RNA sequence: GUAUUCUAUGGGGGUAUAACCUUUAAAGAACAACUUAAGUACUAAUUUAAUCUCACAUACCCCCUAUGUAAUUCGUGCAUUACUGCUAGUCAGCAUGAAUAUUAUAUA
Numbered sequence: 001g002u003a004u005u006c007u008a009u010g011g012g013g014g015u016a017u018a019a020c021c022u023u024u025a026a027a028g029a030a031c032a033a034c035u036u037a038a039g040u041a042c043u044a045a046u047u048u049a050a051u052c053u054c055a056c057a058u059a060c061c062c063c064c065u066a067u068g069u070a071a072u073u074c075g076u077g078c079a080u081u082a083c084u085g086c087u088a089g090u091c092a093g094c095a096u097g098a099a100u101a102u103u104a105u106a107u108a
Stems, first nucleotide, its partner, number of pairs: 005099001007097004012091002017085002024038001026036003039060002043055001045053001066080005

The family of this 108-nucleotide sequence from Colobus angolensis is "Mitochondrial DNA control region secondary structure A". Rfam classes the family as an antisense RNA. The organism belongs to Colobus angolensis, within Eukaryota. The literature on the family includes a 2008 paper in Mol Biol Evol by Pereira et al., "Evidence for variable selective pressures at a large secondary structure of the human mitochondrial DNA control region". It scores 70 bits against the family's covariance model.